[Rfam]
RNA sequence: GUCGGAUAUGGAGACAUGUGUCCGAUCACUAUGGGAGGCAAAAUGGUCGGUACCCUCUGUGCCAUAGCUGGUGUUCUGACCAUUGCCCUACCAGUCCCUGUCAUCGUUUCCAAC
Numbered sequence: 001g002u003c004g005g006a007u008a009u010g011g012a013g014a015c016a017u018g019u020g021u022c023c024g025a026u027c028a029c030u031a032u033g034g035g036a037g038g039c040a041a042a043a044u045g046g047u048c049g050g051u052a053c054c055c056u057c058u059g060u061g062c063c064a065u066a067g068c069u070g071g072u073g074u075u076c077u078g079a080c081c082a083u084u085g086c087c088c089u090a091c092c093a094g095u096c097c098c099u100g101u102c103a104u105c106g107u108u109u110c111c112a113a114c
Stems, first nucleotide, its partner, number of pairs: 001114002004111002008107004013102004018097001020095002037077002040074001049063003
RNA: Potassium channel RNA editing signal